[Rfam]
RNA sequence: UGAUGUAAAGAAAAAGAAGCCCUGCGUCAACAGGACUUCUCUUAUAGAACCGUUAAAGACGGUAACUAGACUUAUGUUAUAAAAUA
Numbered sequence: 001u002g003a004u005g006u007a008a009a010g011a012a013a014a015a016g017a018a019g020c021c022c023u024g025c026g027u028c029a030a031c032a033g034g035a036c037u038u039c040u041c042u043u044a045u046a047g048a049a050c051c052g053u054u055a056a057a058g059a060c061g062g063u064a065a066c067u068a069g070a071c072u073u074a075u076g077u078u079a080u081a082a083a084a085u086a
Stems, first nucleotide, its partner, number of pairs: 021034004049063006
The record is an 86-nucleotide sequence from Dellaglioa algida, which matches "RNA anti-toxin A" in Rfam. On this family, see Fozo et al., Nucleic Acids Res 2010: "Abundance of type I toxin-antitoxin systems in bacteria: searches for new candidates and discovery of novel families". Pairs were carried over by alignment from the consensus structure, which was predicted with RNAalifold. The match comes from Rfam's covariance-model search (68 bits). The source organism's lineage runs through Bacteria, Bacillati, Bacillota, Bacilli and Dellaglioa algida.